The record is a 68-nucleotide sequence from Flavobacterium tibetense, which matches "Fluoride riboswitch aptamer (crcB RNA motif)" in Rfam. It scores 49 bits against the family's covariance model. Taxonomically the source falls in Flavobacterium (Bacteria, Pseudomonadati, Flavobacteriia, Flavobacteriales).
[Rfam]
RNA sequence: GUUCUUCAAGGAAAUGGUGUUCUUCCUACUUAACCGCUUAUUGAGAAGCUGAUGACGCCUGAUAGUGA
Numbered sequence: 001g002u003u004c005u006u007c008a009a010g011g012a013a014a015u016g017g018u019g020u021u022c023u024u025c026c027u028a029c030u031u032a033a034c035c036g037c038u039u040a041u042u043g044a045g046a047a048g049c050u051g052a053u054g055a056c057g058c059c060u061g062a063u064a065g066u067g068a
Base pairs, nucleotide, nucleotide: 010026011025012024013023016059017058018057019056020055021054036049037048038047039046